[Rfam]
RNA: Ascomycota telomerase RNA, nucleotides 1144 to 1303
Organism: Colletotrichum sublineola
RNA sequence: AUCCUCGUUGUUCUGCUUGUGGUUCAACACUUUCCCGAUGCUCUUCCGGAAACGGGGCCAACGGAUGAGAGCGCGGUUUUUUGUGGAUGUCUUUUGUCCGCGCGGAAUGCCCUCCUUUUGCGAUUCGUCGCUGGAGAGGAAACAAAAACCAGUCCAAGGA
Numbered sequence: 001a002u003c004c005u006c007g008u009u010g011u012u013c014u015g016c017u018u019g020u021g022g023u024u025c026a027a028c029a030c031u032u033u034c035c036c037g038a039u040g041c042u043c044u045u046c047c048g049g050a051a052a053c054g055g056g057g058c059c060a061a062c063g064g065a066u067g068a069g070a071g072c073g074c075g076g077u078u079u080u081u082u083g084u085g086g087a088u089g090u091c092u093u094u095u096g097u098c099c100g101c102g103c104g105g106a107a108u109g110c111c112c113u114c115c116u117u118u119u120g121c122g123a124u125u126c127g128u129c130g131c132u133g134g135a136g137a138g139g140a141a142a143c144a145a146a147a148a149c150c151a152g153u154c155c156a157a158g159g160a
Base pairs, nucleotide, nucleotide: 008027009026010025013022014021015020033068034067035064036063037062039060048053086154087153088152089149090148092147093146094145095144096143097142110139111138112136113135114134115133120131121130122129123128